[Rfam]
Rfam assigns this 100-nucleotide RNA sequence from Paenibacillus arenilitoris to the family "Purine riboswitch aptamer".
RNA sequence: UUGCGUUAUGCUUCAUCUGUUCGUAUAACCUCAAAGAUACGGUUUGAGGGUUUCUACAAGGAACCGAUAAUUCCUGGCUACGAAUAGGAUGCUUUGGCAU
Number, nucleotide and partner (000 for none) at each position: 001u000002u000003g000004c000005g000006u000007u000008a000009u000010g000011c000012u000013u000014c000015a000016u000017c000018u086019g085020u084021u083022c082023g081024u080025a079026u000027a000028a000029c049030c048031u047032c046033a045034a044035a043036g000037a000038u000039a000040c000041g000042g000043u035044u034045u033046g032047a031048g030049g029050g000051u000052u000053u000054c000055u000056a000057c000058a000059a075060g074061g073062a072063a071064c000065c000066g000067a000068u000069a000070a000071u063072u062073c061074c060075u059076g000077g000078c000079u025080a024081c023082g022083a021084a020085u019086a018087g000088g000089a000090u000091g000092c000093u000094u000095u000096g000097g000098c000099a000100u000
Lineage of the source: Bacteria > Bacillati > Bacillota > Paenibacillaceae > Paenibacillus.